[Rfam]
RNA sequence: CCUCUUGCUUCAACAGUGUUUGGACGGAACAGG
Numbered sequence: 001c002c003u004c005u006u007g008c009u010u011c012a013a014c015a016g017u018g019u020u021u022g023g024a025c026g027g028a029a030c031a032g033g
Base pairs, nucleotide, nucleotide: 001033002032003028004027005026007025009024010023011022012021013020014018
This 33-nucleotide RNA sequence from Myotis lucifugus belongs to the Rfam family "Iron response element I". It is annotated as a cis-regulatory element. A search with the family's covariance model found it, with a score of 43 bits.